[Rfam]
Nucleotides: 107
Stems, first nucleotide, its partner, number of pairs: 012037002017032006040101004045097003049091002055086004
Number, partner (000 for none) and nucleotide at each position: 001000g002000u003000c004000a005000g006000c007000u008000a009000a010000a011000g012037g013036c014000a015000a016000c017032u018031g019030a020029u021028u022027u023000g024000a025000a026000a027022a028021g029020a030019u031018c032017a033000g034000g035000c036013g037012c038000a039000a040101a041100a042099c043098u044000a045097c046096c047095g048000a049091c050090c051000u052000a053000a054000a055086g056085a057084a058083a059000a060000a061000c062000a063000a064000c065000u066000a067000u068000g069000u070000u071000u072000a073000u074000a075000u076000g077000g078000u079000u080000u081000u082000a083058u084057u085056u086055c087000u088000a089000u090050g091049g092000c093000a094000g095047c096046g097045g098043a099042g100041u101040u102000a103000c104000c105000u106000g107000a

The family of this 107-nucleotide sequence from Photobacterium proteolyticum is "c-di-GMP-I riboswitch aptamer". The base pairs follow the family's consensus structure, which is taken from published work.